[Rfam]
RNA sequence: UGCCCCGCUCCGGGGUGCACGUAACGGCGUGCUGAGAUGGCGGACCUGACCGCCGGAACCGCGAACUUGAUCUGGUUCAUACCAGCGUAAGAAGAGCUGCAGUCGGAUAG
Numbered sequence: 001u002g003c004c005c006c007g008c009u010c011c012g013g014g015g016u017g018c019a020c021g022u023a024a025c026g027g028c029g030u031g032c033u034g035a036g037a038u039g040g041c042g043g044a045c046c047u048g049a050c051c052g053c054c055g056g057a058a059c060c061g062c063g064a065a066c067u068u069g070a071u072c073u074g075g076u077u078c079a080u081a082c083c084a085g086c087g088u089a090a091g092a093a094g095a096g097c098u099g100c101a102g103u104c105g106g107a108u109a110g
Base pairs, nucleotide, nucleotide: 007097008096009095010094011061012060013059016055017032018031019030020029021028039054040053041052042051043050066091067090068089069088072085073084074083075082

The record is a 110-nucleotide RNA from Diaphorobacter sp. J5-51, which matches "TPP riboswitch aptamer (THI element)" in Rfam. The family's consensus secondary structure is taken from published work. NCBI's taxonomy places the organism under Bacteria, Pseudomonadati, Pseudomonadota, Burkholderiales, Diaphorobacter. A search with the family's covariance model found it, with a score of 60 bits.